[Rfam]
RNA sequence: AAUCUUUUUUUUGCCGCCGCAACAGCCUAUAUAUGAAGGGCUGGUGCAAACCAGCUAUGGCGAUAAACGGGCGACGUAAUAAGCCACUCGGACCCGGGGGCAGUACCCGGCGCCUCCACCAGGUUUCAGUUUCGCGUACGAAUUCGCGAGGGACAUGAUGCGAACUGGAACGUGGCGGGGGCGAAACAGGCUCGACGAGGGUGUAAAGGUCGUACUUUUGCUCGGCAUGGUAUCCGCCGUUAUCGGGCCAAACCAAAUAGUUGCCAACGACAACUAUGCGGAGGCACGUCUCGCUGCGUAGUCAGCGCGAUAGCCUAAAUUUCAAGCCCUAACCUCCUCGCAGGGGUUAGGCGCGGUUUCGGAGGGCACCGGGCAACAGAAGCCCUCCACU
Numbered sequence: 001a002a003u004c005u006u007u008u009u010u011u012u013g014c015c016g017c018c019g020c021a022a023c024a025g026c027c028u029a030u031a032u033a034u035g036a037a038g039g040g041c042u043g044g045u046g047c048a049a050a051c052c053a054g055c056u057a058u059g060g061c062g063a064u065a066a067a068c069g070g071g072c073g074a075c076g077u078a079a080u081a082a083g084c085c086a087c088u089c090g091g092a093c094c095c096g097g098g099g100g101c102a103g104u105a106c107c108c109g110g111c112g113c114c115u116c117c118a119c120c121a122g123g124u125u126u127c128a129g130u131u132u133c134g135c136g137u138a139c140g141a142a143u144u145c146g147c148g149a150g151g152g153a154c155a156u157g158a159u160g161c162g163a164a165c166u167g168g169a170a171c172g173u174g175g176c177g178g179g180g181g182c183g184a185a186a187c188a189g190g191c192u193c194g195a196c197g198a199g200g201g202u203g204u205a206a207a208g209g210u211c212g213u214a215c216u217u218u219u220g221c222u223c224g225g226c227a228u229g230g231u232a233u234c235c236g237c238c239g240u241u242a243u244c245g246g247g248c249c250a251a252a253c254c255a256a257a258u259a260g261u262u263g264c265c266a267a268c269g270a271c272a273a274c275u276a277u278g279c280g281g282a283g284g285c286a287c288g289u290c291u292c293g294c295u296g297c298g299u300a301g302u303c304a305g306c307g308c309g310a311u312a313g314c315c316u317a318a319a320u321u322u323c324a325a326g327c328c329c330u331a332a333c334c335u336c337c338u339c340g341c342a343g344g345g346g347u348u349a350g351g352c353g354c355g356g357u358u359u360c361g362g363a364g365g366g367c368a369c370c371g372g373g374c375a376a377c378a379g380a381a382g383c384c385c386u387c388c389a390c391u
Stems, first nucleotide, its partner, number of pairs: 040055005059222005069215001071213005084201002088198003094110005111183007223239004228250003233246002354371004361388006

About this RNA
The record is a 391-nucleotide RNA sequence from Methyloceanibacter marginalis, which matches "Alphaproteobacteria transfer-messenger RNA" in Rfam. Its Rfam clan is "tRNA clan". It scores 282 bits against the family's covariance model. On this family, see Williams and Bartel, RNA 1996: "Phylogenetic analysis of tmRNA secondary structure".